About this RNA:
The record is a 50-nucleotide sequence from Allobosea sp. WAO, which matches "Guanidine-II riboswitch aptamer (mini-ykkC)" in Rfam. Simpler in structure and has fewer highly conserved nucleotide positions than the ykkC-yxkD leader. Despite this each of its two stem-loop structures directly bind free guanidine.

[Rfam]
Nucleotides: 050
Base pairs, nucleotide, nucleotide: 001020002019003018005016006015007014008013037050038049039048040047041046
Number, partner (000 for none) and nucleotide at each position: 001020g002019g003018g004000u005016g006015a007014g008013g009000a010000c011000g012000a013008c014007c015006u016005c017000c018003c019002c020001c021000a022000u023000g024000a025000c026000g027000g028000g029000c030000a031000g032000a033000u034000u035000u036000g037050c038049u039048g040047g041046g042000a043000c044000g045000a046041c047040c048039c049038g050037g